[Rfam]
RNA sequence: UCCUCGCUCAAAGAAUCGCAUUCAAAGCUCACACACAAAAGGAAGCCUCGCUCCCUUUUCCAAUUUUGCUUUGGGAGAAAGUCCCCGGACACCCUGCGCUUCGAGUAAAACCGAAGUAUCAAGCCAGGCACUGCGGAAACGCGCCGCCAUAGAAGCAAUUCGAUAGCGGCUUACGCCCUAUUCCCUCACGGCAUCCCGUGGCACCCGACGGUUACAUCACGAUGUCUCUGGAAACAAUGGGGUGUCGCUGGGUGUUGGAGAGGGGAAGAAUUGGUGGUAAAACACCUUUUCUUGUAUUGGGUUGCCUUUCGUCAUGUUCGGAUAGUCAUGCGAUUGCCUCCUGUCUGCUUCCUCGGAAGUCGAUGGAGGUAACUCAAUGGGGCUCAUUCUUGAGGCGAGG
Numbered sequence: 001u002c003c004u005c006g007c008u009c010a011a012a013g014a015a016u017c018g019c020a021u022u023c024a025a026a027g028c029u030c031a032c033a034c035a036c037a038a039a040a041g042g043a044a045g046c047c048u049c050g051c052u053c054c055c056u057u058u059u060c061c062a063a064u065u066u067u068g069c070u071u072u073g074g075g076a077g078a079a080a081g082u083c084c085c086c087g088g089a090c091a092c093c094c095u096g097c098g099c100u101u102c103g104a105g106u107a108a109a110a111c112c113g114a115a116g117u118a119u120c121a122a123g124c125c126a127g128g129c130a131c132u133g134c135g136g137a138a139a140c141g142c143g144c145c146g147c148c149a150u151a152g153a154a155g156c157a158a159u160u161c162g163a164u165a166g167c168g169g170c171u172u173a174c175g176c177c178c179u180a181u182u183c184c185c186u187c188a189c190g191g192c193a194u195c196c197c198g199u200g201g202c203a204c205c206c207g208a209c210g211g212u213u214a215c216a217u218c219a220c221g222a223u224g225u226c227u228c229u230g231g232a233a234a235c236a237a238u239g240g241g242g243u244g245u246c247g248c249u250g251g252g253u254g255u256u257g258g259a260g261a262g263g264g265g266a267a268g269a270a271u272u273g274g275u276g277g278u279a280a281a282a283c284a285c286c287u288u289u290u291c292u293u294g295u296a297u298u299g300g301g302u303u304g305c306c307u308u309u310c311g312u313c314a315u316g317u318u319c320g321g322a323u324a325g326u327c328a329u330g331c332g333a334u335u336g337c338c339u340c341c342u343g344u345c346u347g348c349u350u351c352c353u354c355g356g357a358a359g360u361c362g363a364u365g366g367a368g369g370u371a372a373c374u375c376a377a378u379g380g381g382g383c384u385c386a387u388u389c390u391u392g393a394g395g396c397g398a399g400g
Base pairs, nucleotide, nucleotide: 002400003399004398005397006396007395008393009392010391011390014335015334016333017332018331019330022075023073024072025071026070027069028068038058039057040056041055042054044052045051046050080384081383083382084381085380086379098117099116100115101114102113103112241306242305243304248301249300251298252297253296258293259292260291261288262287263286264285271281272280274278337369338368339367340366341365
RNase MRP: a 400-nucleotide RNA from Penicillium nalgiovense. Taxonomically the source falls in Penicillium (Eukaryota, Fungi, Eurotiomycetidae, Aspergillaceae). Rfam classes the family as a ribozyme. A reference for the family is Schmitt et al. (1993), "Secondary structure of RNase MRP RNA as predicted by phylogenetic comparison", FASEB J.